[Rfam]
RNA: Plastid-psbA-4 3UTR RNA
Organism: Nelumbo nucifera
Nucleotides: 060
Stems, first nucleotide, its partner, number of pairs: 007057011020043002024039005
Number, partner (000 for none) and nucleotide at each position: 001000a002000a003000a004000a005000u006000a007057a008056a009055g010054g011053a012052a013051c014050a015049a016048u017047a018000c019000c020043a021042a022000c023000c024039u025038c026037u027036u028035g029000a030000u031000a032000g033000a034000a035028c036027a037026a038025g039024a040000a041000a042021u043020u044000g045000g046000a047017u048016a049015u050014u051013g052012u053011u054010c055009c056008u057007u058000c059000a060000a